[Rfam]
RNA sequence: AAACCGGCGAGAACCAUGUUAAUCAUGGAGUGUAGUGAUUCACGCGGUUCCCACGAA
Numbered sequence: 001a002a003a004c005c006g007g008c009g010a011g012a013a014c015c016a017u018g019u020u021a022a023u024c025a026u027g028g029a030g031u032g033u034a035g036u037g038a039u040u041c042a043c044g045c046g047g048u049u050c051c052c053a054c055g056a057a
Stems, first nucleotide, its partner, number of pairs: 007054001009052001011050005017044003021040005